RNA sequence: CGACGGGCCACGCCGCCCCAACGCGGUGCGGGCUCUCUGGAAGGAGAGUCGUU
Numbered sequence: 001c002g003a004c005g006g007g008c009c010a011c012g013c014c015g016c017c018c019c020a021a022c023g024c025g026g027u028g029c030g031g032g033c034u035c036u037c038u039g040g041a042a043g044g045a046g047a048g049u050c051g052u053u
Base pairs, nucleotide, nucleotide: 011028012027013026014025015024016023033048034047035046036045037044038043
Shown here is a 53-nucleotide sequence from Allosphingosinicella ginsenosidimutans, a member of the family "serC leader". About the family: This family is a putative regulatory RNA structure that is found upstream of the serC-serA operon in some alpha-proteobacteria. The final stem of the structure overlaps the ribosome binding site of the serC reading frame. Rfam links the family to the GO term regulation of gene expression. The source organism's lineage runs through Bacteria, Alphaproteobacteria, Sphingomonadales, Sphingomicrobiaceae and Allosphingosinicella.